The record is a 54-nucleotide sequence from Hucho hucho, which matches "UnaL2 LINE 3' element" in Rfam. Rfam links the family to the GO term transposition, RNA-mediated. The family's consensus secondary structure is taken from published work.
RNA sequence: UGCAAGCAUGACUGUACGUCGCUUUGGAUAAAAGUGUCUGUUAAAGAGCAUUAA
Numbered sequence: 001u002g003c004a005a006g007c008a009u010g011a012c013u014g015u016a017c018g019u020c021g022c023u024u025u026g027g028a029u030a031a032a033a034g035u036g037u038c039u040g041u042u043a044a045a046g047a048g049c050a051u052u053a054a
Stems, first nucleotide, its partner, number of pairs: 013043001014041003020036006